[Rfam]
RNA: ASpks TB sRNA
RNA sequence: CUUCACCGAACCCAGCCACAGCGGGUUCCCGUCCGCUCGCUCCUGGCCGUACGUGGCCUGCAGCGCCUGUGCCUC
Numbered sequence: 001c002u003u004c005a006c007c008g009a010a011c012c013c014a015g016c017c018a019c020a021g022c023g024g025g026u027u028c029c030c031g032u033c034c035g036c037u038c039g040c041u042c043c044u045g046g047c048c049g050u051a052c053g054u055g056g057c058c059u060g061c062a063g064c065g066c067c068u069g070u071g072c073c074u075c
Stems, first nucleotide, its partner, number of pairs: 014026001016024002033069001038065002043060001045058001047056003